[Rfam]
RNA: Xanthomonas sRNA sX7
RNA sequence: AGUUUUUCUAUCGCGGGGACGGCGGAGUCAGUGCCGUCGCUUCUCGCGGUAGAUCUAUCGAAGGCCAGGAGGGCAGGCGCCAUGGACGGCGCAUU
Numbered sequence: 001a002g003u004u005u006u007u008c009u010a011u012c013g014c015g016g017g018g019a020c021g022g023c024g025g026a027g028u029c030a031g032u033g034c035c036g037u038c039g040c041u042u043c044u045c046g047c048g049g050u051a052g053a054u055c056u057a058u059c060g061a062a063g064g065c066c067a068g069g070a071g072g073g074c075a076g077g078c079g080c081c082a083u084g085g086a087c088g089g090c091g092c093a094u095u
Base pairs, nucleotide, nucleotide: 008052009051010050011049012048013047014046015045016044017043018042019041020039021038022037023036024035025034064074065073066072077092078091079090080089081088